[Rfam]
RNA sequence: AAUUGGCUUAAUCUCAGCUGGCAACUGUGAGCAGUUAAUAUAUUAUCUCACAGUGGUCUCUGGGAUUAUGCUAAAC
Numbered sequence: 001a002a003u004u005g006g007c008u009u010a011a012u013c014u015c016a017g018c019u020g021g022c023a024a025c026u027g028u029g030a031g032c033a034g035u036u037a038a039u040a041u042a043u044u045a046u047c048u049c050a051c052a053g054u055g056g057u058c059u060c061u062g063g064g065a066u067u068a069u070g071c072u073a074a075a076c
Base pairs, nucleotide, nucleotide: 003074004073005072006071007070009068010067011066012065013064014063015062016061017060020058021057022056023054026052027051028050029049030048031047
Dot-bracket structure: ..(((((.(((((((((..((((..((((((...............)))))).).))).))))))))).)))))..